About this RNA
Rfam assigns this 309-nucleotide sequence from Aphidius gifuensis to the family "Nuclear RNase P". Its family is annotated with ribonuclease P activity, ribonuclease P complex and tRNA processing in the Gene Ontology. It scores 127 bits against the family's covariance model. Ribonuclease P (RNase P) is a ubiquitous endoribonuclease, found in archaea, bacteria and eukarya as well as chloroplasts and mitochondria. Its best characterised activity is the generation of mature 5'-ends of tRNAs by cleaving the 5'-leader elements of precursor-tRNAs. Cellular RNase Ps are ribonucleoproteins.
RNA sequence: ACAGUGUCAAUCUAGCAGUUGGGGUUUACAAACUGGGUACAUAAUUAUGUUACCAAUGGUAAUUAAUACCUCGGGAAGGUCUGAGACAAGGUUUAUUAAAACACUCUAGCUGGGUGGUGUUAUAAUAACACGCAUGGGAACCAGAAAUGGUUUGACAAUUUUCAAUUGCCUGGGAUACUUUGUCAAUGUGACAUUGUUGAGGUGAUUAUUGUUAAAUUGGAAACUCGUGUAAUCCGCAUUUUGAGUACAAUCUGCAAGCUAGUUUUUUUUUAAAAAACUGGAACUCAAUUCAGACUAAUUUGAUACUGU
Numbered sequence: 001a002c003a004g005u006g007u008c009a010a011u012c013u014a015g016c017a018g019u020u021g022g023g024g025u026u027u028a029c030a031a032a033c034u035g036g037g038u039a040c041a042u043a044a045u046u047a048u049g050u051u052a053c054c055a056a057u058g059g060u061a062a063u064u065a066a067u068a069c070c071u072c073g074g075g076a077a078g079g080u081c082u083g084a085g086a087c088a089a090g091g092u093u094u095a096u097u098a099a100a101a102c103a104c105u106c107u108a109g110c111u112g113g114g115u116g117g118u119g120u121u122a123u124a125a126u127a128a129c130a131c132g133c134a135u136g137g138g139a140a141c142c143a144g145a146a147a148u149g150g151u152u153u154g155a156c157a158a159u160u161u162u163c164a165a166u167u168g169c170c171u172g173g174g175a176u177a178c179u180u181u182g183u184c185a186a187u188g189u190g191a192c193a194u195u196g197u198u199g200a201g202g203u204g205a206u207u208a209u210u211g212u213u214a215a216a217u218u219g220g221a222a223a224c225u226c227g228u229g230u231a232a233u234c235c236g237c238a239u240u241u242u243g244a245g246u247a248c249a250a251u252c253u254g255c256a257a258g259c260u261a262g263u264u265u266u267u268u269u270u271u272a273a274a275a276a277a278c279u280g281g282a283a284c285u286c287a288a289u290u291c292a293g294a295c296u297a298a299u300u301u302g303a304u305a306c307u308g309u
Base pairs, nucleotide, nucleotide: 001309002308003307004306007303008302009301012258013257015255016254017253018252021072022071023070024069025068036054037053038052039051040049081293082292083291084290085289091234093232094231102116103115104114105113106112117131118130119129120128121127132230133229134228135227136226137225138224151216152215153214154213155212156211157210158209259281260280261279262278263277264276265275266274267273